[Rfam]
RNA sequence: CCGUGUUCUGUGCCUGACUCGGCUGGCGCCGGUCUGUCACAGAACACGGGA
Number, nucleotide and partner (000 for none) at each position: 001c049002c048003g047004u046005g045006u044007u043008c042009u041010g040011u039012g038013c000014c036015u000016g034017a033018c032019u000020c031021g030022g029023c000024u000025g000026g000027c000028g000029c022030c021031g020032g018033u017034c016035u000036g014037u000038c012039a011040c010041a009042g008043a007044a006045c005046a004047c003048g002049g001050g000051a000
RNA: mir-3017 microRNA precursor family